[Rfam]
RNA sequence: AGUAGUAGUAAAUACUUAAAUAAAAACUUUAAAAAUUAAAGUAGAGAAAAGUUUUGUGUAAACAGCAGUUAGACACAAGUUAGUUAAUUCUAAAAAAUAAAAAAACUCUGUUUUAAUGUCAGCGCUUACGCCGCACUCUUAAAAAAAAAGCUAGUUAAUAUUCUAAUAUUUAAAUAUAGAUUUUCUGUAGUAAUAUAACUGAGAGCAGAAACUUUAGCAGAAGCUUUAAAAAAAGUUUUUUUUUUUUUUUAACAGUCUGUUACUUUAAAAUUAGUUUAUUUAGAGCUAGAGUUUAAUAGCCGGAAGAGCGCCGCAUUUUUAUAGCGUUUAGUACGCUUUUAAUAAGCUUUAAAAAUCUGCUUAAAAAAAUAGUUUUUAUACUAGAUUGUACUUAUAACCGCAGCAGGUCUCUAAAGUAAAAAACCUCUAGUUAA
Numbered sequence: 001a002g003u004a005g006u007a008g009u010a011a012a013u014a015c016u017u018a019a020a021u022a023a024a025a026a027c028u029u030u031a032a033a034a035a036u037u038a039a040a041g042u043a044g045a046g047a048a049a050a051g052u053u054u055u056g057u058g059u060a061a062a063c064a065g066c067a068g069u070u071a072g073a074c075a076c077a078a079g080u081u082a083g084u085u086a087a088u089u090c091u092a093a094a095a096a097a098u099a100a101a102a103a104a105a106c107u108c109u110g111u112u113u114u115a116a117u118g119u120c121a122g123c124g125c126u127u128a129c130g131c132c133g134c135a136c137u138c139u140u141a142a143a144a145a146a147a148a149a150g151c152u153a154g155u156u157a158a159u160a161u162u163c164u165a166a167u168a169u170u171u172a173a174a175u176a177u178a179g180a181u182u183u184u185c186u187g188u189a190g191u192a193a194u195a196u197a198a199c200u201g202a203g204a205g206c207a208g209a210a211a212c213u214u215u216a217g218c219a220g221a222a223g224c225u226u227u228a229a230a231a232a233a234a235g236u237u238u239u240u241u242u243u244u245u246u247u248u249u250u251a252a253c254a255g256u257c258u259g260u261u262a263c264u265u266u267a268a269a270a271u272u273a274g275u276u277u278a279u280u281u282a283g284a285g286c287u288a289g290a291g292u293u294u295a296a297u298a299g300c301c302g303g304a305a306g307a308g309c310g311c312c313g314c315a316u317u318u319u320u321a322u323a324g325c326g327u328u329u330a331g332u333a334c335g336c337u338u339u340u341a342a343u344a345a346g347c348u349u350u351a352a353a354a355a356u357c358u359g360c361u362u363a364a365a366a367a368a369a370u371a372g373u374u375u376u377u378a379u380a381c382u383a384g385a386u387u388g389u390a391c392u393u394a395u396a397a398c399c400g401c402a403g404c405a406g407g408u409c410u411c412u413a414a415a416g417u418a419a420a421a422a423a424c425c426u427c428u429a430g431u432u433a434a
Stems, first nucleotide, its partner, number of pairs: 016032005034432004043412004049392001054078006064070001085388003089146001094140002096112003100109001102107001120133001122131001150167001152165003170384003175380005180374001186197004204361006213346004219340006226331003229249006253302001255300002262292006271283004309326003313322001315320001398407002414426001416424002